[Rfam]
RNA sequence: GCCGGUCCUCGGUAGUGGCCAUCGGAACAGGGCGAUCCGACGGCUUCGAUCGAAGACCGGC
Numbered sequence: 001g002c003c004g005g006u007c008c009u010c011g012g013u014a015g016u017g018g019c020c021a022u023c024g025g026a027a028c029a030g031g032g033c034g035a036u037c038c039g040a041c042g043g044c045u046u047c048g049a050u051c052g053a054a055g056a057c058c059g060g061c
Base pairs, nucleotide, nucleotide: 001061002060003059004058005057006056007055009053010052011051012050013049017045018044019043020042022040023039024038025037026036028034
Rfam assigns this 61-nucleotide sequence from Actinoallomurus bryophytorum to the family "Actino-pnp RNA". The family's consensus secondary structure is taken from published work.